The family of this 92-nucleotide RNA from Mesobacillus boroniphilus is "c-di-GMP-I riboswitch aptamer". Lineage of the source: Bacteria > Bacillati > Caryophanales > Bacillaceae > Mesobacillus boroniphilus. The match comes from Rfam's covariance-model search (68 bits). Rfam 15.1 lists 5,092 matches to the family in 1,772 species.
RNA sequence: UCAUGCUCAGGGCAAACUUGUUGAAAGACAAGGACGCAAAGCAAGGGAUCUAAGGCUGGAGCUUUCCAGCUAAGAUUGUCCUGGCUGCCAUG
Numbered sequence: 001u002c003a004u005g006c007u008c009a010g011g012g013c014a015a016a017c018u019u020g021u022u023g024a025a026a027g028a029c030a031a032g033g034a035c036g037c038a039a040a041g042c043a044a045g046g047g048a049u050c051u052a053a054g055g056c057u058g059g060a061g062c063u064u065u066c067c068a069g070c071u072a073a074g075a076u077u078g079u080c081c082u083g084g085c086u087g088c089c090a091u092g
Stems, first nucleotide, its partner, number of pairs: 012037002017032006040086003043082001045081003048076003055070006